Overview:
Rfam assigns this 113-nucleotide sequence from Melghirimyces algeriensis to the family "SAM riboswitch aptamer (S box leader)". The source organism's lineage runs through Bacteria, Bacillati, Bacilli, Caryophanales and Melghirimyces. A search with the family's covariance model found it, with a score of 94 bits.
RNA sequence: CUCUUAUCCAGAGAGGUGGAGGGACUGGCCCGAUGAAGCCCGGCAACCAACCGCAGUGUUUUUGUGGUGAUGGUGCCAAUUCCUGCAGGAUAAAUGUUCCUGGCAGAUGAGAG
Numbered sequence: 001c002u003c004u005u006a007u008c009c010a011g012a013g014a015g016g017u018g019g020a021g022g023g024a025c026u027g028g029c030c031c032g033a034u035g036a037a038g039c040c041c042g043g044c045a046a047c048c049a050a051c052c053g054c055a056g057u058g059u060u061u062u063u064g065u066g067g068u069g070a071u072g073g074u075g076c077c078a079a080u081u082c083c084u085g086c087a088g089g090a091u092a093a094a095u096g097u098u099c100c101u102g103g104c105a106g107a108u109g110a111g112a113g
Base pairs, nucleotide, nucleotide: 001113002112003111004110005109006108007107008106013041015040016039017038021031022030023029025085027083028082042077043076044075045074047073048072050068051067052066053065054064055063081105086102087101088100089099090098